[Rfam]
RNA sequence: UGGGAGAAUCCUUAAAGCUCAGGAGGGAUAGCGCCAUAGAUGACAAAAGGAAAAUGGAGCUGGUUGGUUCAUAUAUAUACAUACAGAAAGGUUCCAUUCGUCUAAUGCGCUAUCUAUCCUGAGUUUCACGGUUUCUUCCU
Numbered sequence: 001u002g003g004g005a006g007a008a009u010c011c012u013u014a015a016a017g018c019u020c021a022g023g024a025g026g027g028a029u030a031g032c033g034c035c036a037u038a039g040a041u042g043a044c045a046a047a048a049g050g051a052a053a054a055u056g057g058a059g060c061u062g063g064u065u066g067g068u069u070c071a072u073a074u075a076u077a078u079a080c081a082u083a084c085a086g087a088a089a090g091g092u093u094c095c096a097u098u099c100g101u102c103u104a105a106u107g108c109g110c111u112a113u114c115u116a117u118c119c120u121g122a123g124u125u126u127c128a129c130g131g132u133u134u135c136u137u138c139c140u
Base pairs, nucleotide, nucleotide: 010131016125017124018123019122020121021120022119023118024117026115027114028113029112030111031110032109033108034107
A member of the RNA family "MIR390 microRNA precursor family" from Ananas comosus, 140 nucleotides long. The family's consensus secondary structure was predicted with WAR. The match comes from Rfam's covariance-model search (87 bits). For this family Rfam cites "ASRP: the Arabidopsis Small RNA Project Database" (Gustafson et al., Nucleic Acids Res, 2005). Its family is annotated with RISC complex and miRNA-mediated post-transcriptional gene silencing in the Gene Ontology. The organism belongs to Ananas, within Eukaryota.